The record is a 133-nucleotide RNA sequence from Rhynchospora breviuscula, which matches "Small nucleolar RNA snoR74" in Rfam. Gene Ontology terms of the family: nucleolus and RNA processing. The family has 9 seed sequences and 1,404 matches in Rfam 15.1. The source organism's lineage runs through Eukaryota, Spermatophyta, Liliopsida, Petrosaviidae and Rhynchospora. The family's RNA type in Rfam is H/ACA-box small nucleolar RNA. It scores 89 bits against the family's covariance model.

[Rfam]
RNA sequence: AUAAAAGCAGGGUAUUGUUUGUUCAUUCCACUGAACAGUGCUCCCGUAAACUUUAGGGAAAUUAAUUCGAUGUUAUUGGGUGAACCAUUUAGACCAAUCAAUGCUAUCUGGUUCAGUAAACAGCGAUACAUGU
Numbered sequence: 001a002u003a004a005a006a007g008c009a010g011g012g013u014a015u016u017g018u019u020u021g022u023u024c025a026u027u028c029c030a031c032u033g034a035a036c037a038g039u040g041c042u043c044c045c046g047u048a049a050a051c052u053u054u055a056g057g058g059a060a061a062u063u064a065a066u067u068c069g070a071u072g073u074u075a076u077u078g079g080g081u082g083a084a085c086c087a088u089u090u091a092g093a094c095c096a097a098u099c100a101a102u103g104c105u106a107u108c109u110g111g112u113u114c115a116g117u118a119a120a121c122a123g124c125g126a127u128a129c130a131u132g133u
Stems, first nucleotide, its partner, number of pairs: 005053003011042002014039007067126003071122004081115007